Shown here is a 75-nucleotide RNA sequence from Desulfamplus magnetovallimortis, a member of the family "c-di-GMP-I-GGC riboswitch aptamer". The family's consensus secondary structure is taken from published work. Lineage of the source: Bacteria > Pseudomonadati > Desulfobacteria > Desulfobacterales > Desulfamplus. Its Rfam clan is "c-di-GMP_I riboswitch clan". A search with the family's covariance model found it, with a score of 68 bits.

[Rfam]
RNA sequence: AUUUGAAAAGCCAAACCAGUUGUGAAACUGGGACGGAAAACCACGGGUCUCUUUGAGAUAGCCGGGUUGCCUCAA
Numbered sequence: 001a002u003u004u005g006a007a008a009a010g011c012c013a014a015a016c017c018a019g020u021u022g023u024g025a026a027a028c029u030g031g032g033a034c035g036g037a038a039a040a041c042c043a044c045g046g047g048u049c050u051c052u053u054u055g056a057g058a059u060a061g062c063c064g065g066g067u068u069g070c071c072u073c074a075a
Stems, first nucleotide, its partner, number of pairs: 011036002016031006034061001039068004044064003047059003